[Rfam]
RNA sequence: ACAAAGGCUCUUUUAAGAGCCACCACAUUUGUAUUUUAAACAGCUGU
Dot-bracket structure: .....((((((....))))))..........................
The record is a 47-nucleotide sequence from Collichthys lucidus, which matches "Histone 3' UTR stem-loop" in Rfam. By type it is a cis-regulatory element. Pairs were carried over by alignment from the consensus structure, which is taken from published work. A search with the family's covariance model found it, with a score of 39 bits.